[Rfam]
RNA: NiCo (Nickel/Cobalt) riboswitch aptamer
RNA sequence: ACAGUACAAGCUGAGCAGGCGAUGAUACGUUAGUGUCGUGGGGCCGGGCCGCCAGAUCAGGUGGCAGCAGAUUGAAUUUCACACAUCUGUGGGACAGUU
Numbered sequence: 001a002c003a004g005u006a007c008a009a010g011c012u013g014a015g016c017a018g019g020c021g022a023u024g025a026u027a028c029g030u031u032a033g034u035g036u037c038g039u040g041g042g043g044c045c046g047g048g049c050c051g052c053c054a055g056a057u058c059a060g061g062u063g064g065c066a067g068c069a070g071a072u073u074g075a076a077u078u079u080c081a082c083a084c085a086u087c088u089g090u091g092g093g094a095c096a097g098u099u
Base pairs, nucleotide, nucleotide: 010098011097012096013095016093018045019044020043022039023038024037025036026035027034048065049064050063051062052061067090068089069088070087071086072085